About this RNA: c-di-GMP-I riboswitch aptamer: an 88-nucleotide RNA sequence from Marinobacter sp. X15-166B. About the family: GEMM was predicted in a large-scale screen for bacterial structured RNA regulatory elements. Its Rfam clan is "c-di-GMP_I riboswitch clan". The base pairs follow the family's consensus structure, which is taken from published work.
[Rfam]
Nucleotides: 088
Base pairs, nucleotide, nucleotide: 012037013036017032018031019030020029021028022027041081042080043079045078046077047076048073049072050071055067056066057065058064
Number, partner (000 for none) and nucleotide at each position: 001000g002000g003000g004000u005000u006000g007000a008000a009000a010000a011000g012037g013036c014000a015000a016000a017032u018031c019030u020029g021028c022027c023000u024000a025000a026000a027022g028021g029020c030019a031018g032017a033000g034000a035000c036013g037012c038000a039000a040000a041081g042080u043079c044000a045078c046077c047076g048073g049072u050071c051000u052000a053000a054000c055067g056066g057065g058064g059000u060000a061000c062000a063000c064058c065057c066056u067055c068000c069000a070000a071050g072049a073048c074000a075000g076047c077046g078045g079043g080042a081041c082000c083000g084000u085000c086000a087000a088000c